[Rfam]
RNA sequence: UGGCGCCCAACGUGGGGCUUGAGCACGGGGGAUCCAGUGAAGGACACCGUUCGAGUGGCCGGCAGAAAGAAAAGCAAAGGAAAAGAAAGUAAAAGAAAAGAGAGAAUGACGUGGGAACCUGCUGCGUCUGCACCCCUCGGGUAAGUGAACGGCGAUUAUGGGUCAAGCAUUGAGCCAAGAUAAGAUGUUCGUUGAAGGACUAGGAAAGGCUAUAAAGGCACGAGGAGUAAAGGUAAAAAUUAAGCAUUUGUGUCAGUAUUUUGAUUAUAUUAAAGAACUUUGUCCUU
Numbered sequence: 001u002g003g004c005g006c007c008c009a010a011c012g013u014g015g016g017g018c019u020u021g022a023g024c025a026c027g028g029g030g031g032a033u034c035c036a037g038u039g040a041a042g043g044a045c046a047c048c049g050u051u052c053g054a055g056u057g058g059c060c061g062g063c064a065g066a067a068a069g070a071a072a073a074g075c076a077a078a079g080g081a082a083a084a085g086a087a088a089g090u091a092a093a094a095g096a097a098a099a100g101a102g103a104g105a106a107u108g109a110c111g112u113g114g115g116a117a118c119c120u121g122c123u124g125c126g127u128c129u130g131c132a133c134c135c136c137u138c139g140g141g142u143a144a145g146u147g148a149a150c151g152g153c154g155a156u157u158a159u160g161g162g163u164c165a166a167g168c169a170u171u172g173a174g175c176c177a178a179g180a181u182a183a184g185a186u187g188u189u190c191g192u193u194g195a196a197g198g199a200c201u202a203g204g205a206a207a208g209g210c211u212a213u214a215a216a217g218g219c220a221c222g223a224g225g226a227g228u229a230a231a232g233g234u235a236a237a238a239a240u241u242a243a244g245c246a247u248u249u250g251u252g253u254c255a256g257u258a259u260u261u262u263g264a265u266u267a268u269a270u271u272a273a274a275g276a277a278c279u280u281u282g283u284c285c286u287u
Stems, first nucleotide, its partner, number of pairs: 006031003012026003037047002100138001102136001107132001110126005146165003150162001153160002171214002174210003221263005227257002231249004272287002275284002

A member of the RNA family "Mason-Pfizer monkey virus packaging signal" from Molossus molossus, 287 nucleotides long. This family represents a group of sequences that are related to the Mason-Pfizer monkey virus (MPMV) packaging signal. The packaging signal is located in the 5' UTR and is required for specific RNA encapsidation. For this family Rfam cites "Mutational analysis of the predicted secondary RNA structure of the Mason-Pfizer monkey virus packaging signal" (Mustafa et al., Virus Res, 2004). A search with the family's covariance model found it, with a score of 112 bits.